[Rfam]
RNA sequence: GCCUGAACUUUUUAUCACGCACAUCACUUAGAUGGCUCUAGAAAGUCACAUAGGAG
Numbered sequence: 001g002c003c004u005g006a007a008c009u010u011u012u013u014a015u016c017a018c019g020c021a022c023a024u025c026a027c028u029u030a031g032a033u034g035g036c037u038c039u040a041g042a043a044a045g046u047c048a049c050a051u052a053g054g055a056g
Stems, first nucleotide, its partner, number of pairs: 019036002022034004
Dot-bracket structure: ..................((.((((.....))))))....................
RNA: Plastid-ndhJ 3UTR RNA
Organism: Protea cynaroides